[Rfam]
RNA: SAM riboswitch aptamer (S box leader)
RNA sequence: AACUUAUCCAGAGUAAGCAGAGGGAAUUGGCCCGAUGACGCUUCAGCAACCUACCAUUGGCAAGGUGCUAAAUCCAACUCGAAAGAGGAAGAUGAGUC
Numbered sequence: 001a002a003c004u005u006a007u008c009c010a011g012a013g014u015a016a017g018c019a020g021a022g023g024g025a026a027u028u029g030g031c032c033c034g035a036u037g038a039c040g041c042u043u044c045a046g047c048a049a050c051c052u053a054c055c056a057u058u059g060g061c062a063a064g065g066u067g068c069u070a071a072a073u074c075c076a077a078c079u080c081g082a083a084a085g086a087g088g089a090a091g092a093u094g095a096g097u098c
Stems, first nucleotide, its partner, number of pairs: 002097007013044001015043004022033003027077004045069004050065002052062001054060002073090001078087003